[Rfam]
RNA sequence: UUCCAUGAUGAGCACCUUUCAAAGCAUAGUUCACCUGACGGUCUUCGGACCAUUGAACGACAAACCAAAACCAUCUUUCGCCUUAUUAUCUGACA
Number, nucleotide and partner (000 for none) at each position: 001u000002u000003c000004c000005a000006u000007g000008a000009u000010g016011a000012g000013c000014a000015c000016c010017u000018u000019u000020c000021a000022a000023a000024g000025c000026a000027u000028a000029g058030u057031u056032c055033a054034c000035c000036u000037g000038a000039c000040g051041g050042u049043c048044u000045u000046c000047g000048g043049a042050c041051c040052a000053u000054u033055g032056a031057a030058c029059g000060a000061c000062a000063a000064a000065c000066c000067a000068a000069a000070a000071c000072c000073a000074u000075c000076u000077u000078u000079c000080g000081c000082c000083u000084u000085a000086u000087u000088a000089u000090c000091u000092g000093a000094c000095a000

Background
The family of this 95-nucleotide sequence from Rasamsonia emersonii is "A. fumigatus snoRNA Afu_263". The pairing is the family consensus, mapped onto this sequence. Lineage of the source: Eukaryota > Opisthokonta > Dikarya > Eurotiomycetidae > Rasamsonia emersonii. For this family Rfam cites "Small ncRNA transcriptome analysis from Aspergillus fumigatus suggests a novel mechanism for regulation of protein synthesis" (Jochl et al., Nucleic Acids Res, 2008). Its family is annotated with RNA processing and nucleolus in the Gene Ontology. The match comes from Rfam's covariance-model search (74 bits).